[Rfam]
RNA sequence: GAAUGAACUUACUGUAAGUCGCUCUGCAUAAGAGCGUCUGCUAAAUGACUGAAG
Dot-bracket structure: ............((((...((((((.....))))))..))).)...........
Numbered sequence: 001g002a003a004u005g006a007a008c009u010u011a012c013u014g015u016a017a018g019u020c021g022c023u024c025u026g027c028a029u030a031a032g033a034g035c036g037u038c039u040g041c042u043a044a045a046u047g048a049c050u051g052a053a054g
Stems, first nucleotide, its partner, number of pairs: 013043001014041003020036006
The record is a 54-nucleotide sequence from Salmo trutta, which matches "UnaL2 LINE 3' element" in Rfam.
The family's consensus secondary structure is taken from published work.
It is annotated as a cis-regulatory element.
It scores 59 bits against the family's covariance model.